[Rfam]
small nucleolar RNA snoR127: a 194-nucleotide sequence from Prunus persica. Rfam classes the family as a C/D-box small nucleolar RNA.

RNA sequence: CUGGGAUGAUGCAAAUUAGCCAAAUCAUAUGUGGAUGUGCUCCAUGGGGCAGUUUUUCAUAAGCUUGUACUGGUUCCUAUUUGAGAGGCAUUUUGCCUCUCGUCUAUGGACUUGGUUAGGCUUUUGAUAUUUGCCUUCUGUAGAAGUGCAUCUAUCUGAUGAUAAAACAGAGAUAAGGGUUCUUGCUGACCAGA
Numbered sequence: 001c002u003g004g005g006a007u008g009a010u011g012c013a014a015a016u017u018a019g020c021c022a023a024a025u026c027a028u029a030u031g032u033g034g035a036u037g038u039g040c041u042c043c044a045u046g047g048g049g050c051a052g053u054u055u056u057u058c059a060u061a062a063g064c065u066u067g068u069a070c071u072g073g074u075u076c077c078u079a080u081u082u083g084a085g086a087g088g089c090a091u092u093u094u095g096c097c098u099c100u101c102g103u104c105u106a107u108g109g110a111c112u113u114g115g116u117u118a119g120g121c122u123u124u125u126g127a128u129a130u131u132u133g134c135c136u137u138c139u140g141u142a143g144a145a146g147u148g149c150a151u152c153u154a155u156c157u158g159a160u161g162a163u164a165a166a167a168c169a170g171a172g173a174u175a176a177g178g179g180u181u182c183u184u185g186c187u188g189a190c191c192a193g194a
Base pairs, nucleotide, nucleotide: 001193002192003191004190
The family has 3 seed sequences and 273 matches in Rfam 15.1. A reference for the family is Chen and Wu (2009), "Mining small RNA sequencing data: a new approach to identify small nucleolar RNAs in Arabidopsis", Nucleic Acids Res.